[Rfam]
Nucleotides: 210
Stems, first nucleotide, its partner, number of pairs: 001111007009048001011046002015040002018035004052103004061096004065090001068087001070083001139201005156187004164174004
Number, partner (000 for none) and nucleotide at each position: 001111c002110c003109a004108a005107u006106g007105u008000a009048g010000u011046c012045a013000u014000a015040c016039u017000u018035g019034g020033a021032a022000g023000a024000a025000g026000a027000g028000g029000u030000c031000a032021u033020u034019c035018u036000u037000c038000c039016a040015g041000g042000a043000u044000c045012u046011g047000u048009c049000c050000u051000a052103g053102u054101g055100g056000c057000a058000g059000a060000g061096a062095g063094g064093a065090g066000c067000a068087c069000a070083g071000g072000g073000c074000u075000c076000u077000u078000c079000u080000c081000u082000a083070c084000c085000g086000a087068g088000a089000g090065c091000c092000a093064u094063c095062c096061u097000u098000g099000u100055c101054c102053a103052c104000a105007g106006u107005g108004u109003u110002g111001g112000u113000g114000a115000g116000g117000a118000a119000g120000c121000u122000a123000g124000g125000c126000c127000u128000g129000g130000a131000g132000u133000c134000u135000u136000u137000g138000a139201c140200u141199g142198u143197a144000u145000g146000u147000a148000u149000c150000u151000a152000a153000g154000a155000c156187u157186u158185c159184u160000c161000a162000c163000a164174g165173u166172u167171c168000u169000g170000u171167g172166g173165a174164c175000a176000a177000g178000u179000g180000a181000c182000u183000a184159a185158g186157g187156a188000c189000a190000c191000a192000a193000c194000c195000c196000u197143u198142g199141c200140a201139g202000a203000a204000a205000a206000c207000a208000a209000u210000a
The family of this 210-nucleotide sequence from Mus musculus is "Small nucleolar RNA SNORA73 family". Rfam 15.1 lists 2,326 matches to the family in 660 species. U17 (SNORA73A and SNORA73B) also known as E1 belongs to the H/ACA class of small nucleolar RNAs (snoRNAs). Vertebrate U17 is intron-encoded and ranges in length from 200-230 nucleotides, longer than most snoRNAs. It is one of the most abundant snoRNAs in human cells and is essential for the cleavage of pre-rRNA within the 5' external transcribed spacer (ETS). This cleavage leads to the formation of 18S rRNA. Regions of the U17 RNA are complementary to rRNA and act as guides for RNA/RNA interactions, although these regions do not seem to be well conserved between organisms. On this family, see Cervelli et al., J Mol Evol 2002: "Comparative Structure Analysis of Vertebrate U17 Small Nucleolar RNA (snoRNA)". Its family is annotated with nucleolus and RNA processing in the Gene Ontology. Lineage of the source: Eukaryota > Opisthokonta > Deuterostomia > Muridae > Mus.